[Rfam]
RNA sequence: GGCAACUUGCCCUGAGAGGGGGUGUUGUUGUGUUGUACCAAAUCUUAUCACUGAUCGUUGCACCUAUUCUUGCAGGUCUAGUCAUCGAACUAUUUUCGCAUUGGUUAGAUGCGAAAGACAAAGACAACGAUUGAAAGCAAGUUGCAUUCUAACCCGCACGCUCGAAGUCGCAACGAGUGUAUAA
Numbered sequence: 001g002g003c004a005a006c007u008u009g010c011c012c013u014g015a016g017a018g019g020g021g022g023u024g025u026u027g028u029u030g031u032g033u034u035g036u037a038c039c040a041a042a043u044c045u046u047a048u049c050a051c052u053g054a055u056c057g058u059u060g061c062a063c064c065u066a067u068u069c070u071u072g073c074a075g076g077u078c079u080a081g082u083c084a085u086c087g088a089a090c091u092a093u094u095u096u097c098g099c100a101u102u103g104g105u106u107a108g109a110u111g112c113g114a115a116a117g118a119c120a121a122a123g124a125c126a127a128c129g130a131u132u133g134a135a136a137g138c139a140a141g142u143u144g145c146a147u148u149c150u151a152a153c154c155c156g157c158a159c160g161c162u163c164g165a166a167g168u169c170g171c172a173a174c175g176a177g178u179g180u181a182u183a184a
Stems, first nucleotide, its partner, number of pairs: 002145007010021004022038004052133009063075001079092004094116009159179005